Shown here is a 131-nucleotide sequence from Nannospalax galili, a member of the family "Small nucleolar RNA SNORA33". The family has 28 seed sequences and 1,176 matches in Rfam 15.1. Rfam links the family to the GO terms nucleolus and RNA processing. It scores 113 bits against the family's covariance model. It is annotated as an H/ACA-box small nucleolar RNA.
[Rfam]
RNA sequence: AAGCCAGCCAACUGAUCUGCUUAUAUGAAUGUGUAUCUGCAGAGAGCCAGAAAAAGCAGGCAAUAGUAAGACCAUGACACAAGUCUUAAGGACAGCUAUAGUCAUUAAGAUCCCUGAGAAUGGCUAUAAUA
Numbered sequence: 001a002a003g004c005c006a007g008c009c010a011a012c013u014g015a016u017c018u019g020c021u022u023a024u025a026u027g028a029a030u031g032u033g034u035a036u037c038u039g040c041a042g043a044g045a046g047c048c049a050g051a052a053a054a055a056g057c058a059g060g061c062a063a064u065a066g067u068a069a070g071a072c073c074a075u076g077a078c079a080c081a082a083g084u085c086u087u088a089a090g091g092a093c094a095g096c097u098a099u100a101g102u103c104a105u106u107a108a109g110a111u112c113c114c115u116g117a118g119a120a121u122g123g124c125u126a127u128a129a130u131a
Stems, first nucleotide, its partner, number of pairs: 003061003007057001016043005072123003083111007091103003
Dot-bracket structure: ..(((.(........(((((..................))))).............).)))..........(((........(((((((.(((.......))).))))))).........)))........

ACA33 is a member of the H/ACA class of snoRNA that guide the sites of modification of uridines to pseudouridines.